[Rfam]
RNA sequence: CUUUAUUGAUGACCUCUCAUUUGUGUCACUGUGUCUGGGUCAUAGAAGCCUUUUGAUGGAGCCUAAGAGAUAAAAUUCUAAGAUUUAAAG
Numbered sequence: 001c002u003u004u005a006u007u008g009a010u011g012a013c014c015u016c017u018c019a020u021u022u023g024u025g026u027c028a029c030u031g032u033g034u035c036u037g038g039g040u041c042a043u044a045g046a047a048g049c050c051u052u053u054u055g056a057u058g059g060a061g062c063c064u065a066a067g068a069g070a071u072a073a074a075a076u077u078c079u080a081a082g083a084u085u086u087a088a089a090g
Stems, first nucleotide, its partner, number of pairs: 001090004
Shown here is a 90-nucleotide RNA from Ursus americanus, a member of the family "Small nucleolar RNA SNORD66". The family's consensus secondary structure was predicted with RNAalifold. The source organism's lineage runs through Eukaryota, Gnathostomata, Dipnotetrapodomorpha, Amniota and Ursus. Rfam classes the family as a C/D-box small nucleolar RNA. Rfam describes the family as follows. snoRNA HBII-142 is part of the C/D family of snoRNAs. It is the human orthologue of the mouse MBII-142 snoRNA and is predicted to guide 2'O-ribose methylation of small 18S rRNA at residue C1272.